[Rfam]
RNA sequence: CUUUGGUCUUUUUGUGGCUCCCACAAAAAUGGCAAGUUGUCCAAGUGCCGACUUUGCGGACGUAGGAAGCAAACAAAGGACAAUUCGACUGCCGAAGGAACGUAGGCACAAAGAAUUGAAUGGACUAGUUGCCACCAACCAAAG
Numbered sequence: 001c002u003u004u005g006g007u008c009u010u011u012u013u014g015u016g017g018c019u020c021c022c023a024c025a026a027a028a029a030u031g032g033c034a035a036g037u038u039g040u041c042c043a044a045g046u047g048c049c050g051a052c053u054u055u056g057c058g059g060a061c062g063u064a065g066g067a068a069g070c071a072a073a074c075a076a077a078g079g080a081c082a083a084u085u086c087g088a089c090u091g092c093c094g095a096a097g098g099a100a101c102g103u104a105g106g107c108a109c110a111a112a113g114a115a116u117u118g119a120a121u122g123g124a125c126u127a128g129u130u131g132c133c134a135c136c137a138a139c140c141a142a143a144g
Base pairs, nucleotide, nucleotide: 001144002143003142004141005140006135007134009029010028011027012026013025014024015023016022031133032132033131034130035129037127039125040124041123042122043121048079049078053073054072081118082117083116084115085114086113090108091107092106093105

Rfam assigns this 144-nucleotide RNA sequence from Enterococcus gilvus to the family "Enterococcus-1 RNA". NCBI's taxonomy places the organism under Bacteria, Bacillati, Lactobacillales, Enterococcus, Enterococcus gilvus. The sequence is in the family's curated seed alignment. Rfam classes the family as a small RNA.